[Rfam]
RNA sequence: CUCUUAUCCAGAGUGGCGGAGGGACUAGGCCCUGCGAUGCCCGGCAACCAACGAAAAAUUUUUCGGAAAGGUGCUAAUUCCUACAGAUUGAUUUUAAUCUGAAAGAUAAGAG
Number, nucleotide and partner (000 for none) at each position: 001c112002u111003c110004u109005u108006a107007u106008c105009c000010a000011g000012a000013g042014u000015g041016g040017c039018g000019g000020a000021g032022g031023g030024a000025c000026u083027a082028g081029g080030c023031c022032c021033u000034g000035c000036g000037a000038u000039g017040c016041c015042c013043g075044g074045c073046a072047a000048c071049c070050a000051a000052c065053g064054a000055a000056a000057a000058a000059u000060u000061u000062u000063u000064c053065g052066g000067a000068a000069a000070g049071g048072u046073g045074c044075u043076a000077a000078u000079u104080c029081c028082u027083a026084c101085a100086g099087a098088u097089u096090g000091a000092u000093u000094u000095u000096a089097a088098u087099c086100u085101g084102a000103a000104a079105g008106a007107u006108a005109a004110g003111a002112g001
SAM riboswitch aptamer (S box leader): a 112-nucleotide RNA sequence from Jeotgalibacillus campisalis.
Pairs were carried over by alignment from the consensus structure, which is taken from published work.
The match comes from Rfam's covariance-model search (90 bits).
The organism belongs to Jeotgalibacillus, within Bacteria.